Rfam assigns this 133-nucleotide RNA sequence from Brassica carinata to the family "MIR9563 microRNA precursor family". Taxonomically the source falls in Brassica (Eukaryota, Embryophyta, Euphyllophyta, malvids).

[Rfam]
RNA sequence: GGAAUAUAAGAAACCGCCUCUUAACUUUUAACUUAAAAAAUUAAGAAUCGGCUAAGAGCCGGUUCUUAUUUUUUUUAGUUAGCCGAUUCUUAAUUUUUUUAGUUAAAAGUUAAGAGGCGGUUUCUUAUAUUCC
Numbered sequence: 001g002g003a004a005u006a007u008a009a010g011a012a013a014c015c016g017c018c019u020c021u022u023a024a025c026u027u028u029u030a031a032c033u034u035a036a037a038a039a040a041u042u043a044a045g046a047a048u049c050g051g052c053u054a055a056g057a058g059c060c061g062g063u064u065c066u067u068a069u070u071u072u073u074u075u076u077a078g079u080u081a082g083c084c085g086a087u088u089c090u091u092a093a094u095u096u097u098u099u100u101a102g103u104u105a106a107a108a109g110u111u112a113a114g115a116g117g118c119g120g121u122u123u124c125u126u127a128u129a130u131u132c133c
Stems, first nucleotide, its partner, number of pairs: 001133033035099005041093015
The match comes from Rfam's covariance-model search (103 bits).